[Rfam]
RNA sequence: CGCGCUGUUCGCCCAGGCGGAACUUGACCGCCGCCUGAAGUAGUAAGCGCGUUCGUCAAGGAGCACGGGCAGCACUUUGGGCUCGAGUCGAUCUGCCGCUCGCUGCAGGUCGCCUCG
Numbered sequence: 001c002g003c004g005c006u007g008u009u010c011g012c013c014c015a016g017g018c019g020g021a022a023c024u025u026g027a028c029c030g031c032c033g034c035c036u037g038a039a040g041u042a043g044u045a046a047g048c049g050c051g052u053u054c055g056u057c058a059a060g061g062a063g064c065a066c067g068g069g070c071a072g073c074a075c076u077u078u079g080g081g082c083u084c085g086a087g088u089c090g091a092u093c094u095g096c097c098g099c100u101c102g103c104u105g106c107a108g109g110u111c112g113c114c115u116c117g
Stems, first nucleotide, its partner, number of pairs: 016032005078117004089112002092109005098103001
The record is a 117-nucleotide sequence from Piscinibacter aquaticus, which matches "ALIL pseudoknot" in Rfam. Rfam links the family to the GO term positive regulation of translational frameshifting.